[Rfam]
RNA sequence: GUUGCCCUGAUGGUGGGCUUACACCAUUACCCUCCCUGUUGGACUGACCCAAGCUUCGGCUUGGGUCUUUUU
Number, nucleotide and partner (000 for none) at each position: 001g000002u000003u000004g000005c000006c000007c000008u029009g028010a027011u026012g025013g024014u023015g000016g000017g000018c000019u000020u000021a000022c000023a014024c013025c012026a011027u010028u009029a008030c000031c000032c000033u000034c000035c000036c000037u000038g000039u000040u000041g000042g000043a000044c000045u000046g000047a066048c065049c064050c063051a062052a061053g060054c059055u000056u000057c000058g000059g054060c053061u052062u051063g050064g049065g048066u047067c000068u000069u000070u000071u000072u000
Rfam assigns this 72-nucleotide sequence from Rhodobacteraceae bacterium HTCC2150 to the family "Singlet oxygen resistance RNA X". Gene Ontology term of the family: response to photooxidative stress. The source organism's lineage runs through Bacteria, Pseudomonadati, Alphaproteobacteria, Rhodobacterales and Paracoccaceae. Rfam describes the family as follows. SorX (RSs2461)like SorY is a singlet oxygen induced sRNA that counteracts oxidative stress by targeting mRNA for a transporter in Rhodobacter. It also has an impact on resistance against organic hydroperoxides. It targets SD sequence of potA mRNA via an aSD sequence. The aSD sequence and some neighbouring nucleotides are identical to the one of SorY (targets takP mRNA). Rfam classes the family as a small RNA. The base pairs follow the family's consensus structure.